Rfam assigns this 36-nucleotide RNA from Mauremys mutica to the family "MAT2A 3'UTR stem loop D".
RNA sequence: UCUGGGCUGGGGCAGGGGUACAGCCCUUACCUCAGG
Numbered sequence: 001u002c003u004g005g006g007c008u009g010g011g012g013c014a015g016g017g018g019u020a021c022a023g024c025c026c027u028u029a030c031c032u033c034a035g036g
Base pairs, nucleotide, nucleotide: 001036002035003034004033005032006031008029009027010026011025012024013023